[Rfam]
RNA: Aggregatibacter sRNA JA04
RNA sequence: GCAACUUGCAGUUGUUUUAAUAAAAUUGGUUCCUUAGGUUAUUGCCCCACAUUUAUUGUGGGGUUUCUUUUAUGCAAAAA
Numbered sequence: 001g002c003a004a005c006u007u008g009c010a011g012u013u014g015u016u017u018u019a020a021u022a023a024a025a026u027u028g029g030u031u032c033c034u035u036a037g038g039u040u041a042u043u044g045c046c047c048c049a050c051a052u053u054u055a056u057u058g059u060g061g062g063g064u065u066u067c068u069u070u071u072a073u074g075c076a077a078a079a080a
Stems, first nucleotide, its partner, number of pairs: 001015006044064008